Soft rot Enterobacteriaceae Rev 39 5'UTR: a 298-nucleotide RNA sequence from Acerihabitans arboris. Rfam links the family to the GO term cellular response to starvation. NCBI's taxonomy places the organism under Bacteria, Pseudomonadati, Enterobacterales, Pectobacteriaceae, Acerihabitans. Rfam's curators write: From bacteria cultured under starvation conditions. Pairs were carried over by alignment from the consensus structure, which was predicted with RNAfold. A search with the family's covariance model found it, with a score of 188 bits.
[Rfam]
RNA sequence: AAAGGUUGUCAUAAACCCAUUUACUGUGAUAACUCUGUAGGCAUUCAUUCGAGCUGAAGUAAUGAAAACCUAUUUAUGAAAGCCUUUGUCCAAGUGAUUAGCCUAGUCGUGAUUAGCGUGGUGGUGAUUAUUAUCCCACCGUGCGGGGCUGCACUUGGACGAAGAAAAGCUUAUUAAACAAGCUUAAAUCUCAAGAAGACCCCCGCACCGAAAGGACGGGGGUUUUUUUUUGGCUCAUUUUUAUGACAACCAAUACGCAAUAAGAAUAAGGAGCAGAAAAUGAUUAUUAGCAUAAAAU
Dot-bracket structure: ....((((((((..(......)...))))))))...(((((..(((((((.....))....)))))..)))))............(.(((.((..(((.((((.((.(((.....))).(((((.(((....))))))))((.((((......)))).))(((....((.((........)).))...).)).((((((((((((..((....)).)))))))))))).)))))).))).))..))).)..(((...((.(.................).))))).............